[Rfam]
Nucleotides: 087
Base pairs, nucleotide, nucleotide: 002082003081004080005079006078007077013071014070015069016068018067019066020065021064026061027060028059030057
Number, partner (000 for none) and nucleotide at each position: 001000g002082g003081g004080c005079u006078g007077g008000c009000u010000u011000u012000a013071g014070c015069c016068c017000a018067g019066c020065g021064g022000u023000u024000c025000c026061u027060u028059c029000a030057a031000a032000c033000c034000a035000c036000c037000c038000g039000g040000c041000c042000g043000a044000u045000u046000g047000g048000u049000c050000c051000g052000g053000u054000g055000g056000u057030u058000c059028g060027a061026g062000a063000c064021c065020c066019g067018c068016g069015g070014g071013c072000a073000c074000u075000c076000u077007c078006c079005a080004g081003u082002c083000c084000u085000u086000u087000a